[Rfam]
RNA sequence: GAGUGAAAUGAUGGUAUACCAUCUUUUGGGACUGCAAUGGAGAACUACUUUUGAGUGUUAAUGAUCACUC
Numbered sequence: 001g002a003g004u005g006a007a008a009u010g011a012u013g014g015u016a017u018a019c020c021a022u023c024u025u026u027u028g029g030g031a032c033u034g035c036a037a038u039g040g041a042g043a044a045c046u047a048c049u050u051u052u053g054a055g056u057g058u059u060a061a062u063g064a065u066c067a068c069u070c
Stems, first nucleotide, its partner, number of pairs: 001070006

The record is a 70-nucleotide RNA from Coregonus sp. 'balchen', which matches "Small nucleolar RNA SNORD2" in Rfam.
Rfam 15.1 lists 1,116 matches to the family in 660 species.
For this family Rfam cites "Identification of a novel box C/D snoRNA from mouse nucleolar cDNA library" (Zhou et al., Gene, 2004).
NCBI's taxonomy places the organism under Eukaryota, Euteleostomi, Actinopterygii, Salmoniformes, Coregonus.